[Rfam]
RNA: Streptococcus sRNA SpF03
RNA sequence: AUUUCUCGAAUUUAUAGGAAUUUUUUCUAUAAAGAAUAGUUUGGAUUUGAACUGUGUCUAAAAACAGAGGUUGGUAGAUUAUCAGCCUCUUUCUUGUCUUCUCUAACCAA
Numbered sequence: 001a002u003u004u005c006u007c008g009a010a011u012u013u014a015u016a017g018g019a020a021u022u023u024u025u026u027c028u029a030u031a032a033a034g035a036a037u038a039g040u041u042u043g044g045a046u047u048u049g050a051a052c053u054g055u056g057u058c059u060a061a062a063a064a065c066a067g068a069g070g071u072u073g074g075u076a077g078a079u080u081a082u083c084a085g086c087c088u089c090u091u092u093c094u095u096g097u098c099u100u101c102u103c104u105a106a107c108c109a110a
Stems, first nucleotide, its partner, number of pairs: 006018002009015001021110002024106002033059003036055007066090011